[Rfam]
RNA sequence: CUCUGGAGAGAGCCCAUGGGAUGGGCCACCAAAGGGGAAACCGAUCAGUAGGCUGUGUUGUGUAAUGCAGGCUGGGACCGGGUAGCUCUCAGGUACAAAGGACAGAG
Numbered sequence: 001c002u003c004u005g006g007a008g009a010g011a012g013c014c015c016a017u018g019g020g021a022u023g024g025g026c027c028a029c030c031a032a033a034g035g036g037g038a039a040a041c042c043g044a045u046c047a048g049u050a051g052g053c054u055g056u057g058u059u060g061u062g063u064a065a066u067g068c069a070g071g072c073u074g075g076g077a078c079c080g081g082g083u084a085g086c087u088c089u090c091a092g093g094u095a096c097a098a099a100g101g102a103c104a105g106a107g
Base pairs, nucleotide, nucleotide: 001107002106003105004104005103012026013025014024015023028094029093030092032089035088036087037086041081042080
Background
Glycine riboswitch aptamer: a 107-nucleotide sequence from Aneurinibacillus migulanus. From the family's description: This family represents the bacterial glycine riboswitch. Glycine riboswitches usually consist of two metabolite-binding aptamers domains with similar structures in tandem. The aptamers cooperatively bind glycine to regulate the expression of downstream genes. In Bacillus subtilis, this riboswitch is found upstream of the gcvT operon which controls glycine degradation. The match comes from Rfam's covariance-model search (38 bits). Its family is annotated with glycine biosynthetic process in the Gene Ontology. Rfam 15.1 lists 9,425 matches to the family in 5,228 species.